[Rfam]
Rfam assigns this 73-nucleotide RNA to the family "DUF3800-IX RNA". About the family: Actinobacteria, Firmicutes (1 example), Nitrospirae, Proteobacteria, Verrucomicrobia (1 example).
RNA sequence: GGCCCGGCUCCCGAAUAGUCCCCGGAUGGGAGCGCGUUCCUGUCCAGGCGGCAGGAUAGGGGCCGGGUCGCCU
Numbered sequence: 001g002g003c004c005c006g007g008c009u010c011c012c013g014a015a016u017a018g019u020c021c022c023c024g025g026a027u028g029g030g031a032g033c034g035c036g037u038u039c040c041u042g043u044c045c046a047g048g049c050g051g052c053a054g055g056a057u058a059g060g061g062g063c064c065g066g067g068u069c070g071c072c073u
Stems, first nucleotide, its partner, number of pairs: 001069008010061003018035002020032001022030002038056005